This 56-nucleotide RNA from Pseudorhodobacter sp. PARRP1 belongs to the Rfam family "sul1 RNA". Lineage of the source: Bacteria > Pseudomonadati > Alphaproteobacteria > Paracoccaceae > Pseudorhodobacter. A search with the family's covariance model found it, with a score of 78 bits. The family's consensus secondary structure is taken from published work. It is annotated as a riboswitch.

RNA sequence: CUUGGACCCGGUGUAAAUCCGGGUGGCUAUUCCGGCCGCCUAUCCGCCGGACCACG
Numbered sequence: 001c002u003u004g005g006a007c008c009c010g011g012u013g014u015a016a017a018u019c020c021g022g023g024u025g026g027c028u029a030u031u032c033c034g035g036c037c038g039c040c041u042a043u044c045c046g047c048c049g050g051a052c053c054a055c056g
Stems, first nucleotide, its partner, number of pairs: 006024006012017001031051006
Dot-bracket structure: .....(((((((....).))))))......((((((.........)))))).....